[Rfam]
RNA sequence: ACAGUGCCAUGGCCGUCUGAGCUAAACAUUAAACCAACUGAAAAGGCGCAGAUAUCUGCGCCUUUUUU
Dot-bracket structure: .(((.((....))...))).....................(((((((((((....)))))))))))..
The family of this 68-nucleotide RNA sequence is "Salmonella enterica sRNA STnc40". A search with the family's covariance model found it, with a score of 78 bits.